Notes:
Shown here is a 59-nucleotide RNA from Sarcophilus harrisii, a member of the family "mir-7398 microRNA precursor family". It scores 59 bits against the family's covariance model. Gene Ontology terms of the family: miRNA-mediated post-transcriptional gene silencing and RISC complex. Taxonomically the source falls in Sarcophilus (Eukaryota, Opisthokonta, Metazoa, Amniota).
RNA sequence: UGUGUGGAGGGGGGUGAGGGUACCGUGCAGUGUUGGGUAACCUUCCCUUCUCUCACAGU
Numbered sequence: 001u002g003u004g005u006g007g008a009g010g011g012g013g014g015u016g017a018g019g020g021u022a023c024c025g026u027g028c029a030g031u032g033u034u035g036g037g038u039a040a041c042c043u044u045c046c047c048u049u050c051u052c053u054c055a056c057a058g059u
Stems, first nucleotide, its partner, number of pairs: 002056003006053006013047002016044003022038003